The family of this 45-nucleotide sequence from Dechloromonas aromatica is "Guanidine-II riboswitch aptamer (mini-ykkC)". Gene Ontology term of the family: regulation of gene expression. Lineage of the source: Bacteria > Betaproteobacteria > Rhodocyclales > Azonexaceae > Dechloromonas aromatica (nom. nud.). The family's consensus secondary structure is taken from published work.
RNA sequence: CUUCCGGGACGACCCGGAGGCAAAAGAAUCCGGCGGGACGACCCG
Numbered sequence: 001c002u003u004c005c006g007g008g009a010c011g012a013c014c015c016g017g018a019g020g021c022a023a024a025a026g027a028a029u030c031c032g033g034c035g036g037g038a039c040g041a042c043c044c045g
Base pairs, nucleotide, nucleotide: 001020002019003018004017005016006015007014008013034045035044036043037042